[Rfam]
This 62-nucleotide sequence from Otolemur garnettii belongs to the Rfam family "U7 small nuclear RNA". Taxonomically the source falls in Otolemur (Eukaryota, Deuterostomia, Boreoeutheria, Galagidae). A reference for the family is Mowry and Steitz (1987), "Identification of the human U7 snRNP as one of several factors involved in the 3' end maturation of histone premessenger RNA's", Science. Pairs were carried over by alignment from the consensus structure, which was predicted with PFOLD.
RNA sequence: UAGCGUUACAGCUCCUUUAGAAUUUGUCUAGCAGAUUUUCUGGUCCUCACCAAAAGACCUCC
Numbered sequence: 001u002a003g004c005g006u007u008a009c010a011g012c013u014c015c016u017u018u019a020g021a022a023u024u025u026g027u028c029u030a031g032c033a034g035a036u037u038u039u040c041u042g043g044u045c046c047u048c049a050c051c052a053a054a055a056g057a058c059c060u061c062c
Base pairs, nucleotide, nucleotide: 034059036057037056038055039054041052042051043050044049